[Rfam]
RNA sequence: CAGCCGGGACGACCCGGCUGCGCACAUGAAUCCCCGGCGGGACGACCCGC
Numbered sequence: 001c002a003g004c005c006g007g008g009a010c011g012a013c014c015c016g017g018c019u020g021c022g023c024a025c026a027u028g029a030a031u032c033c034c035c036g037g038c039g040g041g042a043c044g045a046c047c048c049g050c
Base pairs, nucleotide, nucleotide: 001020002019003018004017005016006015007014008013037050038049039048040047041046

Description
The record is a 50-nucleotide RNA sequence from Azohydromonas caseinilytica, which matches "Guanidine-II riboswitch aptamer (mini-ykkC)" in Rfam. Simpler in structure and has fewer highly conserved nucleotide positions than the ykkC-yxkD leader. Rfam links the family to the GO term regulation of gene expression. Pairs were carried over by alignment from the consensus structure, which is taken from published work.